[Rfam]
RNA sequence: GUGCGAUGAUGAAGCUAUUUGUGGACUAGAGUUUCUGAUCUGGGUUCUCAAUUCCCAGAAGUUGAAGAUAAACCCUUGGCUGUCCGAGCAC
Numbered sequence: 001g002u003g004c005g006a007u008g009a010u011g012a013a014g015c016u017a018u019u020u021g022u023g024g025a026c027u028a029g030a031g032u033u034u035c036u037g038a039u040c041u042g043g044g045u046u047c048u049c050a051a052u053u054c055c056c057a058g059a060a061g062u063u064g065a066a067g068a069u070a071a072a073c074c075c076u077u078g079g080c081u082g083u084c085c086g087a088g089c090a091c
Stems, first nucleotide, its partner, number of pairs: 001091004032067004039060001040058005

Source information
This 91-nucleotide RNA sequence from Nyssa sinensis belongs to the Rfam family "Small nucleolar RNA Z157/R69/R10". Rfam links the family to the GO terms nucleolus and RNA processing. By type it is a C/D-box small nucleolar RNA. Lineage of the source: Eukaryota > Spermatophyta > asterids > Nyssaceae > Nyssa. On this family, see Chen et al., Nucleic Acids Res 2003: "The high diversity of snoRNAs in plants: identification and comparative study of 120 snoRNA genes from Oryza sativa". Its Rfam clan is "SNORD52 clan". It scores 67 bits against the family's covariance model.